[Rfam]
A member of the RNA family "SAM (S-adenosyl methionine) riboswitch aptamer" from Antricoccus suffuscus, 105 nucleotides long.
It scores 83 bits against the family's covariance model.
About the family: SAM-IV is a mRNA element that regulates gene expression via direct sensing of S-adenosylmethionine (SAM or AdoMet).
The base pairs follow the family's consensus structure, which is taken from published work.
RNA sequence: AGUAAUGAGGACCAGCGCUAAGCCCUGACUUGCUGGCCGGCAACCCUCUUUUUGCGGCGGGGUGCCUCAGGUGAUUACUCGGCAAGAUCAUUGCAAGCGCGAAAA
Numbered sequence: 001a002g003u004a005a006u007g008a009g010g011a012c013c014a015g016c017g018c019u020a021a022g023c024c025c026u027g028a029c030u031u032g033c034u035g036g037c038c039g040g041c042a043a044c045c046c047u048c049u050u051u052u053u054g055c056g057g058c059g060g061g062g063u064g065c066c067u068c069a070g071g072u073g074a075u076u077a078c079u080c081g082g083c084a085a086g087a088u089c090a091u092u093g094c095a096a097g098c099g100c101g102a103a104a105a
Stems, first nucleotide, its partner, number of pairs: 001079004009038001012036005021030002039066003044062003048057002082094004